[Rfam]
RNA sequence: CUGGAAUGAUGUACUUUAGCCAAAUCAGAUGCUUGAUGUGCUCCAUAAGGCAUGUCUUCAAAGCUUGUGCUUGGUAUUAUAGAGCAUUGGGUCUCUUAUAUACUCUUGAUCAAGCAGACGAUAUGCCAUUUGUAGAAGCGCAUUGCUGUGACGUUGAAAUAGAGAUCGGGUGUUUCUGACCAGA
Numbered sequence: 001c002u003g004g005a006a007u008g009a010u011g012u013a014c015u016u017u018a019g020c021c022a023a024a025u026c027a028g029a030u031g032c033u034u035g036a037u038g039u040g041c042u043c044c045a046u047a048a049g050g051c052a053u054g055u056c057u058u059c060a061a062a063g064c065u066u067g068u069g070c071u072u073g074g075u076a077u078u079a080u081a082g083a084g085c086a087u088u089g090g091g092u093c094u095c096u097u098a099u100a101u102a103c104u105c106u107u108g109a110u111c112a113a114g115c116a117g118a119c120g121a122u123a124u125g126c127c128a129u130u131u132g133u134a135g136a137a138g139c140g141c142a143u144u145g146c147u148g149u150g151a152c153g154u155u156g157a158a159a160u161a162g163a164g165a166u167c168g169g170g171u172g173u174u175u176c177u178g179a180c181c182a183g184a
Stems, first nucleotide, its partner, number of pairs: 001183004
A member of the RNA family "small nucleolar RNA snoR127" from Morella rubra, 184 nucleotides long.
The family has 3 seed sequences and 273 matches in Rfam 15.1.
The match comes from Rfam's covariance-model search (52 bits).
The organism belongs to Morella, within Eukaryota.
By type it is a C/D-box small nucleolar RNA.
Its family is annotated with nucleolus and RNA processing in the Gene Ontology.
For this family Rfam cites "Mining small RNA sequencing data: a new approach to identify small nucleolar RNAs in Arabidopsis" (Chen and Wu, Nucleic Acids Res, 2009).